[Rfam]
Source information: Shown here is a 156-nucleotide RNA sequence from Populus tomentosa, a member of the family "MIR2912 microRNA precursor family". The base pairs follow the family's consensus structure, which was predicted with RNAalifold. Rfam links the family to the GO terms miRNA-mediated post-transcriptional gene silencing and RISC complex. Rfam 15.1 lists 15,051 matches to the family in 15 species.

RNA sequence: UCUAGAACUCGAGAUAUGGGUUGAAUAUUGAAUAGUAUCUAGGUUGUAGGACAAAUUCUGACUUUUUUGUUGUUGCUAUAAUUUGAACUUGAAAAUGGUCUUUUUGAAUCUUGUACUUCUCAUGAAAGUUUUAGGCCUAUGUCUUAGAUUUCUAGC
Numbered sequence: 001u002c003u004a005g006a007a008c009u010c011g012a013g014a015u016a017u018g019g020g021u022u023g024a025a026u027a028u029u030g031a032a033u034a035g036u037a038u039c040u041a042g043g044u045u046g047u048a049g050g051a052c053a054a055a056u057u058c059u060g061a062c063u064u065u066u067u068u069g070u071u072g073u074u075g076c077u078a079u080a081a082u083u084u085g086a087a088c089u090u091g092a093a094a095a096u097g098g099u100c101u102u103u104u105u106g107a108a109u110c111u112u113g114u115a116c117u118u119c120u121c122a123u124g125a126a127a128g129u130u131u132u133a134g135g136c137c138u139a140u141g142u143c144u145u146a147g148a149u150u151u152c153u154a155g156c
Stems, first nucleotide, its partner, number of pairs: 002155006008147002011145010021134005027129003035123002042118002045115002048112004054105002060099001062098002068092001072088003